[Rfam]
RNA sequence: AGAAUUUCAUAGCGACUAACAUGUAUAACCUCAAUAAUACGGGUUGAGGGUCUCUACCAGGAACCAAUAACUCCUGACUACAAAGGUAAAUCCACUUUGU
Numbered sequence: 001a002g003a004a005u006u007u008c009a010u011a012g013c014g015a016c017u018a019a020c021a022u023g024u025a026u027a028a029c030c031u032c033a034a035u036a037a038u039a040c041g042g043g044u045u046g047a048g049g050g051u052c053u054c055u056a057c058c059a060g061g062a063a064c065c066a067a068u069a070a071c072u073c074c075u076g077a078c079u080a081c082a083a084a085g086g087u088a089a090a091u092c093c094a095c096u097u098u099g100u
Base pairs, nucleotide, nucleotide: 022082023081024080025079029049030048031047032046033045034044035043058076059075060074061073062072
RNA: Purine riboswitch aptamer
Organism: Sporosarcina luteola